[Rfam]
RNA sequence: CUGAAGCCCUGUUCAAGUAAUCCAGGAUAGGCUUUCUGCGUCUGCUUCGGCCUGUCCUGGAUCACUUGCGCUGGGAGGCAG
Numbered sequence: 001c002u003g004a005a006g007c008c009c010u011g012u013u014c015a016a017g018u019a020a021u022c023c024a025g026g027a028u029a030g031g032c033u034u035u036c037u038g039c040g041u042c043u044g045c046u047u048c049g050g051c052c053u054g055u056c057c058u059g060g061a062u063c064a065c066u067u068g069c070g071c072u073g074g075g076a077g078g079c080a081g
Stems, first nucleotide, its partner, number of pairs: 002080002007075003011071002014068005020062003024058010
The family of this 81-nucleotide sequence from Kryptolebias marmoratus is "mir-26 microRNA precursor family". Lineage of the source: Eukaryota > Bilateria > Eurypterygia > Acanthomorphata > Kryptolebias.